This 140-nucleotide sequence from Chrysochloris asiatica belongs to the Rfam family "U11 spliceosomal RNA".
The literature on the family includes a 1988 paper in Proc Natl Acad Sci U S A by Montzka and Steitz, "Additional low-abundance human small nuclear ribonucleoproteins: U11, U12, etc".
Pairs were carried over by alignment from the consensus structure, which is taken from published work.

[Rfam]
RNA sequence: AAAAAGGGGGGCGGGGCUUCUGUCUUUAAGUGGCACACGUAGGGCAUCUAUUGCUCUAUGUGAAGAAUCGACAUCAAGAGAUUUUGGAAGCAUAAUUUUUGUUACCUGGGCAGCUGGUGGUCAUUGGGCUUGGCGCCCUA
Numbered sequence: 001a002a003a004a005a006g007g008g009g010g011g012c013g014g015g016g017c018u019u020c021u022g023u024c025u026u027u028a029a030g031u032g033g034c035a036c037a038c039g040u041a042g043g044g045c046a047u048c049u050a051u052u053g054c055u056c057u058a059u060g061u062g063a064a065g066a067a068u069c070g071a072c073a074u075c076a077a078g079a080g081a082u083u084u085u086g087g088a089a090g091c092a093u094a095a096u097u098u099u100u101g102u103u104a105c106c107u108g109g110g111c112a113g114c115u116g117g118u119g120g121u122c123a124u125u126g127g128g129c130u131u132g133g134c135g136c137c138c139u140a
Base pairs, nucleotide, nucleotide: 016091017090018089019088020087021035022034023033024032036062037061038060039059040058041057042056043055044054045053046052064085065084066083067082068081069080108138109137110136111135113134114133115132116131117130119129121127122126
Dot-bracket structure: ...............(((((((((.......))))(((((((((((.....))))))))))).((((((..........)))))).)))))................((((.(((((.(.((...)).))))))))))..